[Rfam]
RNA: c-di-AMP riboswitch aptamer (ydaO/yuaA leader)
RNA sequence: CGGCAUCCCGUGCAGUGUCGACCGAGCCGGGGAACCAGCAGCCAGCGCGAGCUGGCGGGGUGAAUCGCGUCCGCGGAUGCGUAGGGCGACCCUUCCUUCCGCCCGAACCCGACAGCUAACCCGGUAGGCGGCCAAAGGAAGGAGCG
Numbered sequence: 001c002g003g004c005a006u007c008c009c010g011u012g013c014a015g016u017g018u019c020g021a022c023c024g025a026g027c028c029g030g031g032g033a034a035c036c037a038g039c040a041g042c043c044a045g046c047g048c049g050a051g052c053u054g055g056c057g058g059g060g061u062g063a064a065u066c067g068c069g070u071c072c073g074c075g076g077a078u079g080c081g082u083a084g085g086g087c088g089a090c091c092c093u094u095c096c097u098u099c100c101g102c103c104c105g106a107a108c109c110c111g112a113c114a115g116c117u118a119a120c121c122c123g124g125u126a127g128g129c130g131g132c133c134a135a136a137g138g139a140a141g142g143a144g145c146g
Stems, first nucleotide, its partner, number of pairs: 001024002026125006036057001058110003066081004084104004